[Rfam]
RNA sequence: GUGCCGAUGGCAGUGCCAUUCCCAGAGCUGUCAACAGGCUCGUGGUCACAGCUCUUGGAAUGGUGCUGCCAUCAGCAC
Numbered sequence: 001g002u003g004c005c006g007a008u009g010g011c012a013g014u015g016c017c018a019u020u021c022c023c024a025g026a027g028c029u030g031u032c033a034a035c036a037g038g039c040u041c042g043u044g045g046u047c048a049c050a051g052c053u054c055u056u057g058g059a060a061u062g063g064u065g066c067u068g069c070c071a072u073c074a075g076c077a078c
Stems, first nucleotide, its partner, number of pairs: 002077003007072003011068003015064007024055008
RNA: mir-458 microRNA precursor family
Organism: Polioptila caerulea